[Rfam]
Shown here is a 98-nucleotide RNA from Moschus moschiferus, a member of the family "mir-544 microRNA precursor family". A search with the family's covariance model found it, with a score of 66 bits. Gene Ontology terms of the family: miRNA-mediated post-transcriptional gene silencing and RISC complex. Taxonomically the source falls in Moschus (Eukaryota, Eumetazoa, Amniota, Boreoeutheria). On this family, see Chiang et al., Genes Dev 2010: "Mammalian microRNAs: experimental evaluation of novel and previously annotated genes".

RNA sequence: GUCACCUGGGGAUCUUGUUAAACUGGAGAUUCUGAUUCGGUAGGUCUGGGAUGGAGUCUAAGAUCCUGCCUUUUUAACAAGCUCCCAGGUGAUGCUGC
Dot-bracket structure: ..(((...(((..(((((((((..(.((..(((...........................)))..)).)..)).))))))).)))...))).......